A member of the RNA family "mir-219 microRNA precursor family" from Xiphophorus maculatus, 81 nucleotides long. For this family Rfam cites "Vertebrate microRNA genes" (Lim et al., Science, 2003). The base pairs follow the family's consensus structure, which was predicted with RNAalifold.
RNA sequence: CUAGCUGCUGAUUGUCCAAACGCAAUUCUUGUAAAAUUCAAAAAUCCAAGCCGAGAAUUGUGCCUGGACAUCUGUUGCUGG
Numbered sequence: 001c002u003a004g005c006u007g008c009u010g011a012u013u014g015u016c017c018a019a020a021c022g023c024a025a026u027u028c029u030u031g032u033a034a035a036a037u038u039c040a041a042a043a044a045u046c047c048a049a050g051c052c053g054a055g056a057a058u059u060g061u062g063c064c065u066g067g068a069c070a071u072c073u074g075u076u077g078c079u080g081g
Stems, first nucleotide, its partner, number of pairs: 002080004007075001010072003014069005021062011
A search with the family's covariance model found it, with a score of 71 bits. NCBI's taxonomy places the organism under Eukaryota, Euteleostomi, Eurypterygia, Acanthomorphata, Xiphophorus. Rfam 15.1 lists 1,318 matches to the family in 774 species.